[Rfam]
RNA: FMN riboswitch aptamer (RFN element)
RNA sequence: ACUUAUUCUCAGGGCGGGGCGUAAUUCCCCACCGGCGGUGUAUCAGGAUACUGAUGAGCCCGCGAGCGCUCUUUACAUAUAAAGAGGACAGCAGAACUGGUAAAAGCCAGUGCCGACGGUAUAGUCCGGAUGAAAGAGGAUAGGC
Numbered sequence: 001a002c003u004u005a006u007u008c009u010c011a012g013g014g015c016g017g018g019g020c021g022u023a024a025u026u027c028c029c030c031a032c033c034g035g036c037g038g039u040g041u042a043u044c045a046g047g048a049u050a051c052u053g054a055u056g057a058g059c060c061c062g063c064g065a066g067c068g069c070u071c072u073u074u075a076c077a078u079a080u081a082a083a084g085a086g087g088a089c090a091g092c093a094g095a096a097c098u099g100g101u102a103a104a105a106g107c108c109a110g111u112g113c114c115g116a117c118g119g120u121a122u123a124g125u126c127c128g129g130a131u132g133a134a135a136g137a138g139g140a141u142a143g144g145c
Base pairs, nucleotide, nucleotide: 003143004142005141006140007139008138009137010136017029018028019027031125032124033115034114035063036062037061038060058113059112066092067091096111097110098109099108100107117128118127119126